The record is a 140-nucleotide RNA from Actinomyces weissii, which matches "FMN riboswitch aptamer (RFN element)" in Rfam. A search with the family's covariance model found it, with a score of 86 bits. About the family: The RFN element is a highly conserved domain that is found frequently in the 5'-untranslated regions of prokaryotic mRNAs that encode for flavin mononucleotide (FMN) biosynthesis and transport proteins. Taxonomically the source falls in Actinomyces (Bacteria, Bacillati, Actinomycetota, Actinomycetes).
[Rfam]
RNA sequence: ACGUGCUCCGGGGUCGGUGCAAUUCCGAGCCGGCGGUAACAGUCCGCGACCCGUCCACAGCUCCCCGCCGGGGCGCCUGGACGGCUGACCUGGUGGAACUCCAGGACCGACGGUCAAAGUCCGGAUGGGAGGCAGCACGG
Numbered sequence: 001a002c003g004u005g006c007u008c009c010g011g012g013g014u015c016g017g018u019g020c021a022a023u024u025c026c027g028a029g030c031c032g033g034c035g036g037u038a039a040c041a042g043u044c045c046g047c048g049a050c051c052c053g054u055c056c057a058c059a060g061c062u063c064c065c066c067g068c069c070g071g072g073g074c075g076c077c078u079g080g081a082c083g084g085c086u087g088a089c090c091u092g093g094u095g096g097a098a099c100u101c102c103a104g105g106a107c108c109g110a111c112g113g114u115c116a117a118a119g120u121c122c123g124g125a126u127g128g129g130a131g132g133c134a135g136c137a138c139g140g
Stems, first nucleotide, its partner, number of pairs: 002139006008131001015027003029120002031109002033047004042107002051084007089105005111123003